Record summary: The record is an 89-nucleotide RNA sequence from Medicago truncatula, which matches "MIR2617 microRNA precursor family" in Rfam. The family has 3 seed sequences and 1,174 matches in Rfam 15.1. Taxonomically the source falls in Medicago (Eukaryota, Embryophyta, Fabales, Fabaceae). Pairs were carried over by alignment from the consensus structure, which was predicted with RNAalifold.
Nucleotides: 089
Base pairs, nucleotide, nucleotide: 005086007084008083009082010081011080012079013078014077016076017075018074019073020072021071
Number, partner (000 for none) and nucleotide at each position: 001000u002000a003000g004000u005086a006000g007084u008083g009082u010081g011080a012079c013078a014077u015000g016076c017075c018074u019073g020072u021071u022000u023000g024000g025000g026000u027000c028000a029000u030000u031000a032000c033000u034000c035000u036000g037000a038000u039000g040000c041000a042000u043000g044000u045000u046000u047000a048000u049000u050000u051000a052000u053000u054000a055000a056000u057000u058000a059000a060000u061000u062000g063000a064000u065000u066000u067000u068000g069000g070000g071021a072020a073019c074018g075017g076016g077014g078013u079012g080011u081010u082009a083008c084007a085000a086005u087000u088000g089000g